The family of this 264-nucleotide sequence from Phaseolus vulgaris is "Early nodulin 40". The sequence is in the family's curated seed alignment. Pairs were carried over by alignment from the consensus structure, which is taken from published work. Gene Ontology term of the family: nodulation. The literature on the family includes a 2007 paper in Nucleic Acids Res by Gultyaev and Roussis, "Identification of conserved secondary structures and expansion segments in enod40 RNAs reveals new enod40 homologues in plants". It is annotated as a non-coding RNA gene.
RNA sequence: AUGAAGUUUUGUUGGCAAGCAUCCAUCCAUGGUUCUUAAGAAGCAUGGAGAGAAAGGAGUGUGAGAGGGUCCUUACCCCUCACACUCCCCCUCUUUCGACAGUUUGCUUGCGCUUAGCUUUGGCUUCUCUAAUCAACAAGGGAUGUGCUUAAACAUUCUGUGAGUGGCAAAAGCAGAUAUGCAUUCUCCAAAGGAUAAGAGGCUUUGGCUACACUCAGGCAAACCGGCAAGUCACAAAAAGGCAAUGGACUCCAUCGGGGUCUC
Numbered sequence: 001a002u003g004a005a006g007u008u009u010u011g012u013u014g015g016c017a018a019g020c021a022u023c024c025a026u027c028c029a030u031g032g033u034u035c036u037u038a039a040g041a042a043g044c045a046u047g048g049a050g051a052g053a054a055a056g057g058a059g060u061g062u063g064a065g066a067g068g069g070u071c072c073u074u075a076c077c078c079c080u081c082a083c084a085c086u087c088c089c090c091c092u093c094u095u096u097c098g099a100c101a102g103u104u105u106g107c108u109u110g111c112g113c114u115u116a117g118c119u120u121u122g123g124c125u126u127c128u129c130u131a132a133u134c135a136a137c138a139a140g141g142g143a144u145g146u147g148c149u150u151a152a153a154c155a156u157u158c159u160g161u162g163a164g165u166g167g168c169a170a171a172a173g174c175a176g177a178u179a180u181g182c183a184u185u186c187u188c189c190a191a192a193g194g195a196u197a198a199g200a201g202g203c204u205u206u207g208g209c210u211a212c213a214c215u216c217a218g219g220c221a222a223a224c225c226g227g228c229a230a231g232u233c234a235c236a237a238a239a240a241g242g243c244a245a246u247g248g249a250c251u252c253c254a255u256c257g258g259g260g261u262c263u264c
Stems, first nucleotide, its partner, number of pairs: 061090001102224006120213001248262005